[Rfam]
RNA sequence: UCAGAUAAAGGCAAACCUAUUGAAAAGUAGGGACGCAAAGUCACAGGUCUAAGGUAAGAAGAUGGGUGCUGUGUAUUUAGUUAAAGUAGAUGGAACCCAGCGGACGACUAAGAUGGCUGGAUUGCCUGGA
Numbered sequence: 001u002c003a004g005a006u007a008a009a010g011g012c013a014a015a016c017c018u019a020u021u022g023a024a025a026a027g028u029a030g031g032g033a034c035g036c037a038a039a040g041u042c043a044c045a046g047g048u049c050u051a052a053g054g055u056a057a058g059a060a061g062a063u064g065g066g067u068g069c070u071g072u073g074u075a076u077u078u079a080g081u082u083a084a085a086g087u088a089g090a091u092g093g094a095a096c097c098c099a100g101c102g103g104a105c106g107a108c109u110a111a112g113a114u115g116g117c118u119g120g121a122u123u124g125c126c127u128g129g130a
Stems, first nucleotide, its partner, number of pairs: 001130001003127002011036002016031006034116001039123004044119003047114003
A member of the RNA family "c-di-GMP-I-GGC riboswitch aptamer" from Rossellomorea aquimaris, 130 nucleotides long. The source organism's lineage runs through Bacteria, Bacillota, Bacilli, Caryophanales and Rossellomorea.